This 68-nucleotide RNA sequence from Salipiger mucosus belongs to the Rfam family "Singlet oxygen resistance RNA X". Lineage of the source: Bacteria > Pseudomonadati > Rhodobacterales > Salipiger > Salipiger mucosus. The family's RNA type in Rfam is small RNA. Gene Ontology term of the family: response to photooxidative stress. The base pairs follow the family's consensus structure. It scores 52 bits against the family's covariance model. SorX (RSs2461)like SorY is a singlet oxygen induced sRNA that counteracts oxidative stress by targeting mRNA for a transporter in Rhodobacter. It also has an impact on resistance against organic hydroperoxides.
[Rfam]
RNA sequence: CGCCCUUUGGCGCAUCAUCUUCAACCUCCCUGUUGGACUUCGGCCGAGCUUUGUGCUCGGCCUUUUUU
Numbered sequence: 001c002g003c004c005c006u007u008u009g010g011c012g013c014a015u016c017a018u019c020u021u022c023a024a025c026c027u028c029c030c031u032g033u034u035g036g037a038c039u040u041c042g043g044c045c046g047a048g049c050u051u052u053g054u055g056c057u058c059g060g061c062c063u064u065u066u067u068u
Stems, first nucleotide, its partner, number of pairs: 008023003012019001042062008